[Rfam]
RNA: Plastid-psbA-1 3UTR RNA
RNA sequence: UGAAAGUCAUUCCCUAUACUUCAGCCAUAGGUUCUAUCAUGUAUGCAAUGUUGUGAUUCAAAAUAAAGACAGAAAUACCCAAUAUCUUGUUCUAGCAAGAUAUUGGGUAUUUCUGUCUU
Numbered sequence: 001u002g003a004a005a006g007u008c009a010u011u012c013c014c015u016a017u018a019c020u021u022c023a024g025c026c027a028u029a030g031g032u033u034c035u036a037u038c039a040u041g042u043a044u045g046c047a048a049u050g051u052u053g054u055g056a057u058u059c060a061a062a063a064u065a066a067a068g069a070c071a072g073a074a075a076u077a078c079c080c081a082a083u084a085u086c087u088u089g090u091u092c093u094a095g096c097a098a099g100a101u102a103u104u105g106g107g108u109a110u111u112u113c114u115g116u117c118u119u
Stems, first nucleotide, its partner, number of pairs: 066119013080105003084101005